Record summary: The family of this 84-nucleotide sequence from Rattus norvegicus is "mir-3473 microRNA precursor family". Gene Ontology terms of the family: RISC complex, miRNA-mediated post-transcriptional gene silencing and cellular response to mechanical stimulus.
[Rfam]
RNA sequence: ACCACUGAGCCAUCUCUCCAGCCCCCCUGUCUCCUUUUAUACAGUAAGAAAAACAUUUGCGGGCUGGAGAGAUGGCUCAGUGGU
Numbered sequence: 001a002c003c004a005c006u007g008a009g010c011c012a013u014c015u016c017u018c019c020a021g022c023c024c025c026c027c028u029g030u031c032u033c034c035u036u037u038u039a040u041a042c043a044g045u046a047a048g049a050a051a052a053a054c055a056u057u058u059g060c061g062g063g064c065u066g067g068a069g070a071g072a073u074g075g076c077u078c079a080g081u082g083g084u
Stems, first nucleotide, its partner, number of pairs: 002083023